[Rfam]
RNA sequence: ACCGCCACGGACGGCGGUGGCUCCAAACAGAAGCGACGUUUUAAAGCAAGACUGUUUGCAAAGCUUUAAAACUCGCAGGUUUCAUUUUGUCACGGACGGCAAAAUCAGAACGGGC
Numbered sequence: 001a002c003c004g005c006c007a008c009g010g011a012c013g014g015c016g017g018u019g020g021c022u023c024c025a026a027a028c029a030g031a032a033g034c035g036a037c038g039u040u041u042u043a044a045a046g047c048a049a050g051a052c053u054g055u056u057u058g059c060a061a062a063g064c065u066u067u068a069a070a071a072c073u074c075g076c077a078g079g080u081u082u083c084a085u086u087u088u089g090u091c092a093c094g095g096a097c098g099g100c101a102a103a104a105u106c107a108g109a110a111c112g113g114g115c
Stems, first nucleotide, its partner, number of pairs: 001018006034075003038072010078111001080109003084105008

Source information
Rfam assigns this 115-nucleotide RNA sequence from Treponema phagedenis to the family "TD-2 RNA". Taxonomically the source falls in Treponema (Bacteria, Spirochaetota, Treponematales, Treponemataceae). Its Rfam clan is "TD (Treponema denticola) motifs". On this family, see Weinberg et al., Nucleic Acids Res 2007: "Identification of 22 candidate structured RNAs in bacteria using the CMfinder comparative genomics pipeline".